RNA sequence: AAAUAUUUUAAUCUCUUUGUAAUUUAUCCUGGUGGGACCCUUUGCUUCGGCUUUGAGUGUUCCAAA
Numbered sequence: 001a002a003a004u005a006u007u008u009u010a011a012u013c014u015c016u017u018u019g020u021a022a023u024u025u026a027u028c029c030u031g032g033u034g035g036g037a038c039c040c041u042u043u044g045c046u047u048c049g050g051c052u053u054u055g056a057g058u059g060u061u062c063c064a065a066a
Stems, first nucleotide, its partner, number of pairs: 034063005040057003044051002

Source information: Shown here is a 66-nucleotide RNA from Drosophila grimshawi, a member of the family "U7 small nuclear RNA". Animal histone pre-mRNAs are spliced by a different mechanism than nuclear pre-mRNAs and self-splicing introns. This processing involves the U7 snRNP, which contains only one RNA species: U7. The 5' end of U7 RNA is thought to base-pair to a conserved spacer element downstream of the cleavage site in histone pre-mRNA. This family contains a number of annotated U7 pseudogenes. On this family, see Spycher et al., Nucleic Acids Res 1994: "3' end processing of mouse histone pre-mRNA: evidence for additional base-pairing between U7 snRNA and pre-mRNA". Lineage of the source: Eukaryota > Eumetazoa > Protostomia > Hexapoda > Hawaiian Drosophila.